[Rfam]
RNA sequence: GGGGGCGAUCUGGUAUCGACCGGGUGUCGGAAGUGUUCGGUGGCGUGUCGUGGUUGAUCAGCUGGCCACGUAAAAAGCCGAUCAAAAUUUAACUGCUGAACCGCAGUACUCCCUCGCGGCUUAAGUGCCGAGAGCCGUUCUGGCAGCUUCGCCUGAGAGGUGCUAGUCCGGACGCAAGUCAGGCUCGCGGGAACUCGAGGAGAGGGGACAACCACCCGAUCCGCCUCGGCGGCCGUUCCUGCUAAAAAAAUCUGGCCGAUAGUUGUGUCGGGGUCCCGCUCGUAGGAACCCGGUAACAACGAACGUGCGGCGGCCCGUUAAACGGUGCGCCGCAGGAAUAUACGAGCUACACACGUAGAUGCCGGCGCGGAAGCGCCUCGGGACCGGGGUUCGAUUCCCCGCGCCUCCACUC
Numbered sequence: 001g002g003g004g005g006c007g008a009u010c011u012g013g014u015a016u017c018g019a020c021c022g023g024g025u026g027u028c029g030g031a032a033g034u035g036u037u038c039g040g041u042g043g044c045g046u047g048u049c050g051u052g053g054u055u056g057a058u059c060a061g062c063u064g065g066c067c068a069c070g071u072a073a074a075a076a077g078c079c080g081a082u083c084a085a086a087a088u089u090u091a092a093c094u095g096c097u098g099a100a101c102c103g104c105a106g107u108a109c110u111c112c113c114u115c116g117c118g119g120c121u122u123a124a125g126u127g128c129c130g131a132g133a134g135c136c137g138u139u140c141u142g143g144c145a146g147c148u149u150c151g152c153c154u155g156a157g158a159g160g161u162g163c164u165a166g167u168c169c170g171g172a173c174g175c176a177a178g179u180c181a182g183g184c185u186c187g188c189g190g191g192a193a194c195u196c197g198a199g200g201a202g203a204g205g206g207g208a209c210a211a212c213c214a215c216c217c218g219a220u221c222c223g224c225c226u227c228g229g230c231g232g233c234c235g236u237u238c239c240u241g242c243u244a245a246a247a248a249a250a251u252c253u254g255g256c257c258g259a260u261a262g263u264u265g266u267g268u269c270g271g272g273g274u275c276c277c278g279c280u281c282g283u284a285g286g287a288a289c290c291c292g293g294u295a296a297c298a299a300c301g302a303a304c305g306u307g308c309g310g311c312g313g314c315c316c317g318u319u320a321a322a323c324g325g326u327g328c329g330c331c332g333c334a335g336g337a338a339u340a341u342a343c344g345a346g347c348u349a350c351a352c353a354c355g356u357a358g359a360u361g362c363c364g365g366c367g368c369g370g371a372a373g374c375g376c377c378u379c380g381g382g383a384c385c386g387g388g389g390u391u392c393g394a395u396u397c398c399c400c401g402c403g404c405c406u407c408c409a410c411u412c
Stems, first nucleotide, its partner, number of pairs: 001408007020381005026374002033368003037365006044355005049070005057082003061078003116138007141165004147160003151184006223274008235289005304336001310330003317347003385401005
Overview:
This 412-nucleotide RNA sequence from Gemmata obscuriglobus belongs to the Rfam family "transfer-messenger RNA". Rfam's curators put it in the seed alignment. The family's consensus secondary structure is taken from published work.